A member of the RNA family "c-di-GMP-I riboswitch aptamer" from Anaerocolumna sedimenticola, 82 nucleotides long.
RNA sequence: UACUAAAAAGGGCAAACUUCUCGAAAGAUAAGGACGCAAAGCCAAGGGCCUAAGUUAACGAACAUGGCAGCCGGUUGCAAAA
Numbered sequence: 001u002a003c004u005a006a007a008a009a010g011g012g013c014a015a016a017c018u019u020c021u022c023g024a025a026a027g028a029u030a031a032g033g034a035c036g037c038a039a040a041g042c043c044a045a046g047g048g049c050c051u052a053a054g055u056u057a058a059c060g061a062a063c064a065u066g067g068c069a070g071c072c073g074g075u076u077g078c079a080a081a082a
Base pairs, nucleotide, nucleotide: 012037013036017032018031019030021028022027040076041075042074043073046072047071048068049067050066055062056061